[Rfam]
RNA sequence: UCCGCACACAAACCCAAAGAGCGCCGUUGGUCUGUGCGGUGUUCUUGUCAUGUGUGCGUAAAGGAAGAAGCACCUUGUCGCCUUCCGUGGGCUGCUGUGCCGGCGGAAGUGAAAUCAGGGUUCAACACGC
Number, nucleotide and partner (000 for none) at each position: 001u000002c000003c058004g057005c056006a055007c054008a053009c052010a000011a000012a000013c000014c000015c000016a000017a000018a000019g044020a043021g042022c041023g040024c039025c038026g037027u036028u000029g000030g000031u000032c000033u000034g000035u000036g027037c026038g025039g024040u023041g022042u021043u020044c019045u000046u000047g000048u000049c000050a000051u000052g009053u008054g007055u006056g005057c004058g003059u000060a000061a000062a000063g000064g000065a000066a000067g000068a000069a000070g123071c000072a121073c120074c119075u118076u117077g000078u000079c000080g000081c000082c109083u108084u107085c106086c105087g104088u103089g000090g101091g100092c099093u000094g000095c000096u000097g000098u000099g092100c091101c090102g000103g088104c087105g086106g085107a084108a083109g082110u000111g000112a000113a000114a000115u000116c000117a076118g075119g074120g073121u072122u000123c070124a000125a000126c000127a000128c000129g000130c000

About this RNA:
A member of the RNA family "Small nucleolar RNA SNORA68" from Conger conger, 130 nucleotides long. Rfam links the family to the GO terms RNA processing and nucleolus. NCBI's taxonomy places the organism under Eukaryota, Opisthokonta, Metazoa, Actinopteri, Conger.